[Rfam]
RNA sequence: CGGCUCUCGCGCGACUGGCGACUUUGGAUGGAGCACCAUCGGGGAGCGCGGGGUGGAUCGCCGUGCGCCUGGGCAAAUUGA
Numbered sequence: 001c002g003g004c005u006c007u008c009g010c011g012c013g014a015c016u017g018g019c020g021a022c023u024u025u026g027g028a029u030g031g032a033g034c035a036c037c038a039u040c041g042g043g044g045a046g047c048g049c050g051g052g053g054u055g056g057a058u059c060g061c062c063g064u065g066c067g068c069c070u071g072g073g074c075a076a077a078u079u080g081a
Base pairs, nucleotide, nucleotide: 005053006052007051008050009049010048011047012046015043016042017069018068019067020066028039029038030037031036058076060074061073062072
RNA: ZMP/ZTP riboswitch aptamer (pfl RNA motif)